[Rfam]
RNA sequence: GCAUAUUUCAGGUUUGUGUAUGAAUCUAAUAAAACCAUAAGCUAGAAAAAGAAGAUGGAAAGGUGGAGUUGUUUCAUGUUAGAUUCACGCACAAACUCGUAAUCUGUCU
Numbered sequence: 001g002c003a004u005a006u007u008u009c010a011g012g013u014u015u016g017u018g019u020a021u022g023a024a025u026c027u028a029a030u031a032a033a034a035c036c037a038u039a040a041g042c043u044a045g046a047a048a049a050a051g052a053a054g055a056u057g058g059a060a061a062g063g064u065g066g067a068g069u070u071g072u073u074u075c076a077u078g079u080u081a082g083a084u085u086c087a088c089g090c091a092c093a094a095a096c097u098c099g100u101a102a103u104c105u106g107u108c109u
Stems, first nucleotide, its partner, number of pairs: 001107003005103003011097009021087006028080003
MIR403 microRNA precursor family: a 109-nucleotide RNA sequence from Gossypium aridum. A search with the family's covariance model found it, with a score of 74 bits. A reference for the family is Mica et al. (2009), "High throughput approaches reveal splicing of primary microRNA transcripts and tissue specific expression of mature microRNAs in Vitis vinifera", BMC Genomics. The base pairs follow the family's consensus structure, which was predicted with WAR.